Record summary: The family of this 131-nucleotide sequence from Protea cynaroides is "Small nucleolar RNA SNORD14". Rfam describes the family as follows. U14 small nucleolar RNA (U14 snoRNA) is required for early cleavages of eukaryotic precursor rRNAs. The base pairs follow the family's consensus structure, which was predicted with PFOLD. Its family is annotated with RNA processing and nucleolus in the Gene Ontology. By type it is a C/D-box small nucleolar RNA.
[Rfam]
RNA sequence: ACUCGAUGAUGAUAAACUUCAAGGCUUGUUUCUCAGAAACAUUCGCAGUGGCCGCCUGAGAGCUUUCGCCUUUGAGAGCUUUCGCUUUGAGAGCUUAUGCUGCCUUAAUCCUUCCUUGGAUGUCUGAGACU
Numbered sequence: 001a002c003u004c005g006a007u008g009a010u011g012a013u014a015a016a017c018u019u020c021a022a023g024g025c026u027u028g029u030u031u032c033u034c035a036g037a038a039a040c041a042u043u044c045g046c047a048g049u050g051g052c053c054g055c056c057u058g059a060g061a062g063c064u065u066u067c068g069c070c071u072u073u074g075a076g077a078g079c080u081u082u083c084g085c086u087u088u089g090a091g092a093g094c095u096u097a098u099g100c101u102g103c104c105u106u107a108a109u110c111c112u113u114c115c116u117u118g119g120a121u122g123u124c125u126g127a128g129a130c131u
Stems, first nucleotide, its partner, number of pairs: 001131001003129002062094006